[Rfam]
RNA sequence: AGUAAAUUAAAUAGGCUGCCAAAGACUAUAGGUGGGUUUCCCUUAAUUUCCUAUAUAGGAGCGAUUAUAUGAUUAUUAACUCUCCUUAUGUCUUUAUGUCAUAGGGAGAUUUUUUAUUAAAAUU
Numbered sequence: 001a002g003u004a005a006a007u008u009a010a011a012u013a014g015g016c017u018g019c020c021a022a023a024g025a026c027u028a029u030a031g032g033u034g035g036g037u038u039u040c041c042c043u044u045a046a047u048u049u050c051c052u053a054u055a056u057a058g059g060a061g062c063g064a065u066u067a068u069a070u071g072a073u074u075a076u077u078a079a080c081u082c083u084c085c086u087u088a089u090g091u092c093u094u095u096a097u098g099u100c101a102u103a104g105g106g107a108g109a110u111u112u113u114u115u116a117u118u119a120a121a122a123u124u
Base pairs, nucleotide, nucleotide: 028054029053030052031051032050034042035041036040081109082108083107084106085105086104087103088102089101090100
The record is a 124-nucleotide RNA from Helcococcus ovis, which matches "Ribosomal protein L10 leader" in Rfam. The family's consensus secondary structure was predicted with CMfinder. Rfam describes the family as follows. This family is a putative r-protein leader autoregulatory structure found in B. subtilis and other low-GC Gram-positive bacteria. It is located in the 5' untranslated regions of mRNAs encoding ribosomal proteins L10 and L12 (rplJ-rplL). A Rho-independent transcription terminator structure that is probably involved in regulation is included at the 3' end. The organism belongs to Helcococcus, within Bacteria. Rfam classes the family as a cis-regulatory leader. It scores 62 bits against the family's covariance model. A reference for the family is Iben and Draper (2008), "Specific interactions of the L10(L12)4 ribosomal protein complex with mRNA, rRNA, and L11", Biochemistry.